Rfam assigns this 406-nucleotide sequence from Pseudogulbenkiania sp. NH8B to the family "Bacterial RNase P class A". Lineage of the source: Bacteria > Pseudomonadati > Pseudomonadota > Betaproteobacteria > Pseudogulbenkiania. The base pairs follow the family's consensus structure, which is taken from published work. Rfam's curators write: Ribonuclease P (RNase P) is a ubiquitous endoribonuclease, found in archaea, bacteria and eukarya as well as chloroplasts and mitochondria.

[Rfam]
RNA sequence: GGAGUCAGUCAGACAGUCGCCGCGUGCCUUCAGGCACGGGGAGGAAAGUCCGGGCUCCGCAGAGCAGGAUGCCGGUUAACGACCGGACGCCGCGAGGCGAUGGAAAGUGGAACAGAGAGCUGAACCGCCGAUGGCCUUGGCAACAGGGAUCAGGCAAGGGUGAAAAGGUGUACCGGUCAGGCGCAAGCCGGGCCGGACGGGCGGGGAAACCUGCCUGCGGUAAGAGCGCACCGCGUCCGUGGCAACACGCGACGGCAGGCUAAACCCCAUCCGGAGCAAGACCAAAUAGGGGGGCGCUAACGUGGCUCGCGUUGUCCCCGGGUAGGUUGCUUGAGCCGGCCAGCAAUGGUCGGCCUAGAGGAAUGACUGUCCACGACAGAACCCGGCUUACCGACUGACUCCCCGU
Numbered sequence: 001g002g003a004g005u006c007a008g009u010c011a012g013a014c015a016g017u018c019g020c021c022g023c024g025u026g027c028c029u030u031c032a033g034g035c036a037c038g039g040g041g042a043g044g045a046a047a048g049u050c051c052g053g054g055c056u057c058c059g060c061a062g063a064g065c066a067g068g069a070u071g072c073c074g075g076u077u078a079a080c081g082a083c084c085g086g087a088c089g090c091c092g093c094g095a096g097g098c099g100a101u102g103g104a105a106a107g108u109g110g111a112a113c114a115g116a117g118a119g120c121u122g123a124a125c126c127g128c129c130g131a132u133g134g135c136c137u138u139g140g141c142a143a144c145a146g147g148g149a150u151c152a153g154g155c156a157a158g159g160g161u162g163a164a165a166a167g168g169u170g171u172a173c174c175g176g177u178c179a180g181g182c183g184c185a186a187g188c189c190g191g192g193c194c195g196g197a198c199g200g201g202c203g204g205g206g207a208a209a210c211c212u213g214c215c216u217g218c219g220g221u222a223a224g225a226g227c228g229c230a231c232c233g234c235g236u237c238c239g240u241g242g243c244a245a246c247a248c249g250c251g252a253c254g255g256c257a258g259g260c261u262a263a264a265c266c267c268c269a270u271c272c273g274g275a276g277c278a279a280g281a282c283c284a285a286a287u288a289g290g291g292g293g294g295c296g297c298u299a300a301c302g303u304g305g306c307u308c309g310c311g312u313u314g315u316c317c318c319c320g321g322g323u324a325g326g327u328u329g330c331u332u333g334a335g336c337c338g339g340c341c342a343g344c345a346a347u348g349g350u351c352g353g354c355c356u357a358g359a360g361g362a363a364u365g366a367c368u369g370u371c372c373a374c375g376a377c378a379g380a381a382c383c384c385g386g387c388u389u390a391c392c393g394a395c396u397g398a399c400u401c402c403c404c405g406u
Stems, first nucleotide, its partner, number of pairs: 001402010012371007020041002023038006046389003050386005055276004062308004067272005072086005087101001088099004102267002107265002109261002125159002127155003132152003136148002167232005233256001234254004239248003280328004290319006299313005335354008